Notes: RNase MRP: a 233-nucleotide RNA sequence from Trichoplusia ni. The base pairs follow the family's consensus structure, which is taken from published work. The family's RNA type in Rfam is ribozyme. Its family is annotated with ribonuclease MRP complex, ribonuclease MRP activity and rRNA processing in the Gene Ontology. Rfam 15.1 lists 3,510 matches to the family in 2,315 species. The organism belongs to Trichoplusia, within Eukaryota. From the family's description: RNase MRP is an enzymatically active ribonucleoprotein with two distinct roles in eukaryotes.
RNA sequence: GGGUUCCGACCAGUUCAGUCGUCGGGGUUACAUUCAGAGCUCUAGUAGUUCAUUUCACCCUGUGGAAAGUCCCCGGAGCUAGGGCGGAAAGCGUCACACCGUGAUGGUGGAGGCAGGGUCGGUUUCGUAGGGGAGGUCACCUGCGCGAAGCCGGGCCCUUAGCGUUGCUCAGAGCAUAGAGAAUAUUGAUAAGACUAUUGUCUAACCAAAUGGGGCUUACUCGGUCUGGAACC
Dot-bracket structure: .((((((((((...(((((...((((((........(((((.....))))).....))))))....[[[.[[[[........((((.....)))).(((((...)))))..(..((((((((((((((......((...))...)))))))).))))))...).....................)))))..((((....))))........]]]]]]]....)))).))))))
Numbered sequence: 001g002g003g004u005u006c007c008g009a010c011c012a013g014u015u016c017a018g019u020c021g022u023c024g025g026g027g028u029u030a031c032a033u034u035c036a037g038a039g040c041u042c043u044a045g046u047a048g049u050u051c052a053u054u055u056c057a058c059c060c061u062g063u064g065g066a067a068a069g070u071c072c073c074c075g076g077a078g079c080u081a082g083g084g085c086g087g088a089a090a091g092c093g094u095c096a097c098a099c100c101g102u103g104a105u106g107g108u109g110g111a112g113g114c115a116g117g118g119u120c121g122g123u124u125u126c127g128u129a130g131g132g133g134a135g136g137u138c139a140c141c142u143g144c145g146c147g148a149a150g151c152c153g154g155g156c157c158c159u160u161a162g163c164g165u166u167g168c169u170c171a172g173a174g175c176a177u178a179g180a181g182a183a184u185a186u187u188g189a190u191a192a193g194a195c196u197a198u199u200g201u202c203u204a205a206c207c208a209a210a211u212g213g214g215g216c217u218u219a220c221u222c223g224g225u226c227u228g229g230a231a232c233c
Stems, first nucleotide, its partner, number of pairs: 002233006008226004015189005023062006037051005067218003071215004083095004097109005112163001115159006121152008135141002192203004